This 34-nucleotide RNA from Jiulongibacter sediminis belongs to the Rfam family "DUF805b RNA".
RNA sequence: GAGGUGGAUUCCGAAAAACCUUAUAGAGUAGGAG
Numbered sequence: 001g002a003g004g005u006g007g008a009u010u011c012c013g014a015a016a017a018a019c020c021u022u023a024u025a026g027a028g029u030a031g032g033a034g
Stems, first nucleotide, its partner, number of pairs: 002021004010033003
Record summary: A search with the family's covariance model found it, with a score of 37 bits. By type it is a cis-regulatory element. The source organism's lineage runs through Bacteria, Bacteroidota, Cytophagia, Cytophagales and Jiulongibacter.